Shown here is a 314-nucleotide RNA from Halorussus gelatinilyticus, a member of the family "Archaeal signal recognition particle RNA". The literature on the family includes a 2011 paper in Nat Struct Mol Biol by Hainzl et al., "Structural basis of signal-sequence recognition by the signal recognition particle". It is annotated as a non-coding RNA gene. Clan: SRP clan.

[Rfam]
Nucleotides: 314
Stems, first nucleotide, its partner, number of pairs: 001314002004310005011064004015033006038060005069304006078295004082290001089285010100271005107264002112259003119255007126245008134236005140229001141180001143178007150170001151168007183227007193220005202211003
Number, partner (000 for none) and nucleotide at each position: 001314a002313g003000a004310u005309g006308g007307a008306c009000u010000a011064g012063g013062u014061c015033g016032g017031g018030c019029a020028g021000u022000u023000a024000g025000g026000u027000c028020c029019u030018g031017c032016u033015c034000u035000c036000c037000a038060c039059c040058c041057g042056c043000a044000c045000u046000a047000u048000g049000g050000c051000c052000u053000u054000u055000a056042g057041c058040g059039g060038g061014g062013a063012c064011c065000g066000a067000a068000c069304c070303c071302c072301g073300g074299a075000g076000g077000c078295g079294u080293c081292c082290g083000g084000u085000c086000a087000g088000a089285c090284c091283g092282u093281g094280c095279c096278g097277g098276g099000c100271c101270c102269c103268g104267g105000a106000a107264g108263c109000c110000g111000a112259c113258u114257u115000c116000g117000a118000a119255g120254c121253c122252u123251c124250g125249u126245c127244c128243u129242g130241c131240g132239g133238g134236g135235a136234c137233a138232g139000c140229g141180g142000u143178c144177u145176u146175c147174g148173g149172c150170g151168g152167g153166c154165a155164c156163u157162c158000g159000c160000a161000g162157g163156a164155g165154u166153g167152c168151c169000g170150c171000a172149g173148u174147c175146g176145g177144a178143g179000u180141u181000a182000g183227c184226c185225g186224a187223u188222g189221g190000u191000a192000a193220u194219c195218c196217g197216u198000c199000a200000g201000g202211c203210g204209c205000g206000g207000a208000a209204g210203c211202g212000a213000g214000c215000a216197g217196c218195g219194g220193g221189c222188c223187a224186u225185u226184g227183g228000a229140c230000a231000u232138c233137u234136g235135u236134c237000g238133c239132u240131c241130g242129u243128a244127g245126g246000g247000u248000u249125g250124c251123g252122g253121g254120g255119u256000g257114g258113a259112g260000g261000a262000c263108g264107c265000g266000a267104c268103c269102g270101g271100g272000a273000u274000u275000c276098c277097c278096c279095g280094g281093c282092a283091c284090g285089g286000a287000a288000c289000g290082c291000c292081g293080g294079g295078c296000a297000a298000a299074u300073u301072c302071g303070g304069g305000c306008g307007u308006c309005c310004a311000c312000a313002c314001u